[Rfam]
RNA: SAM riboswitch aptamer (S box leader)
Organism: Kroppenstedtia eburnea
RNA sequence: UUCUUAUCCAGAGCGGUUGAGGGACUGGCCCGAUGAAACCGCGGCAACCCCCCUUGAACAGGGAAAGGUGCCAACUCCUGUCGGGCGUUUGCCCGGAAGAUGAGAA
Numbered sequence: 001u002u003c004u005u006a007u008c009c010a011g012a013g014c015g016g017u018u019g020a021g022g023g024a025c026u027g028g029c030c031c032g033a034u035g036a037a038a039c040c041g042c043g044g045c046a047a048c049c050c051c052c053c054u055u056g057a058a059c060a061g062g063g064a065a066a067g068g069u070g071c072c073a074a075c076u077c078c079u080g081u082c083g084g085g086c087g088u089u090u091g092c093c094c095g096g097a098a099g100a101u102g103a104g105a106a
Base pairs, nucleotide, nucleotide: 001106002105003104004103005102006101007100008099013042014041015040016039017038021031022030023029025080027078028077043072044071045070046069048068049067051063052062053061076098082095083094084093085092086091